[Rfam]
RNA sequence: UACUCGCAACGUCCCUUAUCUUCUGAAAUCUCUGUUUCGAUCACUAAUUGGAGUGAUCCCAGGGAUUCUCAGUAGAUUAGGGCAUCGAGU
Numbered sequence: 001u002a003c004u005c006g007c008a009a010c011g012u013c014c015c016u017u018a019u020c021u022u023c024u025g026a027a028a029u030c031u032c033u034g035u036u037u038c039g040a041u042c043a044c045u046a047a048u049u050g051g052a053g054u055g056a057u058c059c060c061a062g063g064g065a066u067u068c069u070c071a072g073u074a075g076a077u078u079a080g081g082g083c084a085u086c087g088a089g090u
Stems, first nucleotide, its partner, number of pairs: 002090005011083001013082004018077004023072004027067008039058006
Source information: mir-2240 microRNA precursor family: a 90-nucleotide RNA from Pristionchus pacificus. The base pairs follow the family's consensus structure, which was predicted with RNAalifold. Its family is annotated with RISC complex and miRNA-mediated post-transcriptional gene silencing in the Gene Ontology.